About this RNA
The family of this 85-nucleotide sequence is "c-di-GMP-II-GAG riboswitch aptamer". Gene Ontology terms of the family: cyclic-di-GMP binding and regulation of gene expression. A reference for the family is Weinberg et al. (2017), "Bioinformatic analysis of riboswitch structures uncovers variant classes with altered ligand specificity", Proc Natl Acad Sci U S A.
RNA sequence: GACACUGGGGGAGGCGACGACGCGCGGCCCACACACUGGCCGCCGGGACCGCGCCGAGCCACUGGCGAGACCGACCCGCAGGACU
Numbered sequence: 001g002a003c004a005c006u007g008g009g010g011g012a013g014g015c016g017a018c019g020a021c022g023c024g025c026g027g028c029c030c031a032c033a034c035a036c037u038g039g040c041c042g043c044c045g046g047g048a049c050c051g052c053g054c055c056g057a058g059c060c061a062c063u064g065g066c067g068a069g070a071c072c073g074a075c076c077c078g079c080a081g082g083a084c085u
Stems, first nucleotide, its partner, number of pairs: 001085001005081003009077003013060003022054006029047001038072002041067004
Dot-bracket structure: (...(((.(((.(((......((((((.(........[[.[[[[..).))))))...)))...]]]]...]]..))).)))...)